[Rfam]
A member of the RNA family "TPP riboswitch aptamer (THI element)" from a Bacillota bacterium, 113 nucleotides long. Rfam's curators write: Vitamin B(1) in its active form thiamin pyrophosphate (TPP) is an essential coenzyme that is synthesised by coupling of pyrimidine and thiazole moieties in bacteria. Rfam links the family to the GO term thiamine pyrophosphate binding. Taxonomically the source falls in Bacillota (Bacteria, Bacillati).
RNA sequence: AAUAGUGAGCAGGGGAGCUGGAGAGGCCGGCUGAGAUAAAGAACCUAGGAGUUCUUUGACCCUUUAACCUGAUCUGGGUAAUGCCAGCGUAGGGAAGUGCAUGAACUGCUUUU
Numbered sequence: 001a002a003u004a005g006u007g008a009g010c011a012g013g014g015g016a017g018c019u020g021g022a023g024a025g026g027c028c029g030g031c032u033g034a035g036a037u038a039a040a041g042a043a044c045c046u047a048g049g050a051g052u053u054c055u056u057u058g059a060c061c062c063u064u065u066a067a068c069c070u071g072a073u074c075u076g077g078g079u080a081a082u083g084c085c086a087g088c089g090u091a092g093g094g095a096a097g098u099g100c101a102u103g104a105a106c107u108g109c110u111u112u113u
Base pairs, nucleotide, nucleotide: 006101007100009098010097011063012062013061014060016057017031018030019029020028021027039056040055041054042053043052044051068093069092070091071090074087075086076085077084